[Rfam]
RNA: tRNA
RNA sequence: GGCCUGGUGGCUCAGAUGGUUAGAGUGCCGGCCUGUCACGCCGGAGGUCGAGGGUUCGAUCCCCUUCCAGGUCG
Numbered sequence: 001g002g003c004c005u006g007g008u009g010g011c012u013c014a015g016a017u018g019g020u021u022a023g024a025g026u027g028c029c030g031g032c033c034u035g036u037c038a039c040g041c042c043g044g045a046g047g048u049c050g051a052g053g054g055u056u057c058g059a060u061c062c063c064c065u066u067c068c069a070g071g072u073c074g
Base pairs, nucleotide, nucleotide: 001073002072003071004070005069006068007067010026011025012024013023028044029043030042031041032040050066051065052064053063054062